[Rfam]
RNA sequence: CGAGAUAACUCUCUCUAAGGAACUCGGCAAAAUGGCCCCGUAACUUCGGGAGAAGGGGUGCCCUCUUAACGGGGGGCCGCAGUGAAGAGAUCCAGGCGACUGUUUACCAAAAACACAGGUUUCUGCAAACUCGAAAGAGGAAGUAUAGGAGCUGACGCCUGCCCAGUGCCGGAAGGUUAAGGAAGUUGGUUAGUUUCGACGAAGCUAACGACCGAAGCCCCGGUGAACGGCGGCCGUAACUAUAACGGUCCUAAGGUAGCGAAAUUCCUUGUCGGGUAAGUUCCGACCCGCACGAAAGGCGUAACGAUCUGGAUGCUGUCUCGGAGAGAGACUCG
Numbered sequence: 001c002g003a004g005a006u007a008a009c010u011c012u013c014u015c016u017a018a019g020g021a022a023c024u025c026g027g028c029a030a031a032a033u034g035g036c037c038c039c040g041u042a043a044c045u046u047c048g049g050g051a052g053a054a055g056g057g058g059u060g061c062c063c064u065c066u067u068a069a070c071g072g073g074g075g076g077c078c079g080c081a082g083u084g085a086a087g088a089g090a091u092c093c094a095g096g097c098g099a100c101u102g103u104u105u106a107c108c109a110a111a112a113a114c115a116c117a118g119g120u121u122u123c124u125g126c127a128a129a130c131u132c133g134a135a136a137g138a139g140g141a142a143g144u145a146u147a148g149g150a151g152c153u154g155a156c157g158c159c160u161g162c163c164c165a166g167u168g169c170c171g172g173a174a175g176g177u178u179a180a181g182g183a184a185g186u187u188g189g190u191u192a193g194u195u196u197c198g199a200c201g202a203a204g205c206u207a208a209c210g211a212c213c214g215a216a217g218c219c220c221c222g223g224u225g226a227a228c229g230g231c232g233g234c235c236g237u238a239a240c241u242a243u244a245a246c247g248g249u250c251c252u253a254a255g256g257u258a259g260c261g262a263a264a265u266u267c268c269u270u271g272u273c274g275g276g277u278a279a280g281u282u283c284c285g286a287c288c289c290g291c292a293c294g295a296a297a298g299g300c301g302u303a304a305c306g307a308u309c310u311g312g313a314u315g316c317u318g319u320c321u322c323g324g325a326g327a328g329a330g331a332c333u334c335g
Stems, first nucleotide, its partner, number of pairs: 001335004009330008018321003035059005044049001060077007078082001090314007097306002101115003118153008126143001130139003156301004161231003166228002168224005175219003181213002185209006193200002232250006251255001261288001271287006
Dot-bracket structure: ((((....((((((((.(((..............(((((....(....).....)))))(((((((....)))))))(...).......(((((((((..(((.........)))..(((((((((...(((....)))...)..))))))))..((((.(((..(((((((..(((...((..((((((..((....))...))))))..))...))))))))..)))))((((((.......))))))(...).....(.........((((((.....))))))).........))))...)).)))))))....))).)))))))).))))

Bacterial large subunit ribosomal RNA: a 335-nucleotide part of an RNA from Leptolyngbya ectocarpi. The family's consensus secondary structure is taken from published work.